[Rfam]
RNA sequence: AAUAAGAAAAUGACAAAUCAGAUUUUUCUGCUUAAUUUUCAAUUUUUUCCUCCUAAAAAAAUUCAAAUCUAGCUAAAAAUGCUAAAAAUCAAAGAAAAAAAUUUGAUUUGUCAUCUUCUUAUU
Numbered sequence: 001a002a003u004a005a006g007a008a009a010a011u012g013a014c015a016a017a018u019c020a021g022a023u024u025u026u027u028c029u030g031c032u033u034a035a036u037u038u039u040c041a042a043u044u045u046u047u048u049c050c051u052c053c054u055a056a057a058a059a060a061a062u063u064c065a066a067a068u069c070u071a072g073c074u075a076a077a078a079a080u081g082c083u084a085a086a087a088a089u090c091a092a093a094g095a096a097a098a099a100a101a102u103u104u105g106a107u108u109u110g111u112c113a114u115c116u117u118c119u120u121a122u123u
Base pairs, nucleotide, nucleotide: 001123002122003121004120005119006118007117008116010114011113012112013111014110015109016108017107018106019105020104021103022102023101024100025099026098027097029095032092033091035089036088037087038086039085041083045079046078047077048076
RNA: MIR7504 microRNA precursor family
Organism: Gossypium gossypioides